[Rfam]
RNA sequence: GCAACGCAACCGCCUAAUCGCACCGCUUUCAUUUCUGUGCGAGCCGGGGACCCACCGUGAACUUUUGGGGUGAAUCACGCGCUGACCACCAAUCAGCGUGCGUAGGGCAGCUUCCAAGCCCGAACCCGUCAGCUAACUCGGUCGGCGGUACAUGGAAGAAAC
Numbered sequence: 001g002c003a004a005c006g007c008a009a010c011c012g013c014c015u016a017a018u019c020g021c022a023c024c025g026c027u028u029u030c031a032u033u034u035c036u037g038u039g040c041g042a043g044c045c046g047g048g049g050a051c052c053c054a055c056c057g058u059g060a061a062c063u064u065u066u067g068g069g070g071u072g073a074a075u076c077a078c079g080c081g082c083u084g085a086c087c088a089c090c091a092a093u094c095a096g097c098g099u100g101c102g103u104a105g106g107g108c109a110g111c112u113u114c115c116a117a118g119c120c121c122g123a124a125c126c127c128g129u130c131a132g133c134u135a136a137c138u139c140g141g142u143c144g145g146c147g148g149u150a151c152a153u154g155g156a157a158g159a160a161a162c
Stems, first nucleotide, its partner, number of pairs: 011147004018042006043142006053067002068127003076102001078100008105121004
Rfam assigns this 162-nucleotide sequence from Hoyosella rhizosphaerae to the family "c-di-AMP riboswitch aptamer (ydaO/yuaA leader)". A search with the family's covariance model found it, with a score of 80 bits. Rfam links the family to the GO terms cyclic-di-AMP binding and regulation of gene expression.